[Rfam]
RNA sequence: AGCUCAGGUGAUGAUGUUGGAUUAAUAUCUCACGACGGUCGUCUGAGGCACUAAUUAGUGUCAUUUUUGAUGUAUUAUAAUCCAAUAUUCUGAUGAAACU
Numbered sequence: 001a002g003c004u005c006a007g008g009u010g011a012u013g014a015u016g017u018u019g020g021a022u023u024a025a026u027a028u029c030u031c032a033c034g035a036c037g038g039u040c041g042u043c044u045g046a047g048g049c050a051c052u053a054a055u056u057a058g059u060g061u062c063a064u065u066u067u068u069g070a071u072g073u074a075u076u077a078u079a080a081u082c083c084a085a086u087a088u089u090c091u092g093a094u095g096a097a098a099c100u
Base pairs, nucleotide, nucleotide: 001100002099004097049060050059051058
A member of the RNA family "Small nucleolar RNA Z161/Z228" from Chenopodium quinoa, 100 nucleotides long. Rfam links the family to the GO terms nucleolus and RNA processing. The literature on the family includes a 2003 paper in Nucleic Acids Res by Chen et al., "The high diversity of snoRNAs in plants: identification and comparative study of 120 snoRNA genes from Oryza sativa". Clan: SNORD35 clan. The base pairs follow the family's consensus structure, which was predicted with PFOLD. By type it is a C/D-box small nucleolar RNA.